RNA: Potassium channel RNA editing signal
RNA sequence: UUCAGUUAUGGUGAUAUGGUGCCCUCAACAAUACUGGGGAAAAUUGUUGGUAGCGUGUGUUCCCUGUGUGGGGUUCUGGUAAUCGCUCUCCCGGUUCCAGUAAUUGUCUCCAAC
Numbered sequence: 001u002u003c004a005g006u007u008a009u010g011g012u013g014a015u016a017u018g019g020u021g022c023c024c025u026c027a028a029c030a031a032u033a034c035u036g037g038g039g040a041a042a043a044u045u046g047u048u049g050g051u052a053g054c055g056u057g058u059g060u061u062c063c064c065u066g067u068g069u070g071g072g073g074u075u076c077u078g079g080u081a082a083u084c085g086c087u088c089u090c091c092c093g094g095u096u097c098c099a100g101u102a103a104u105u106g107u108c109u110c111c112a113a114c
Stems, first nucleotide, its partner, number of pairs: 002113001005110001008107004014101002018097002021095002037077004049063002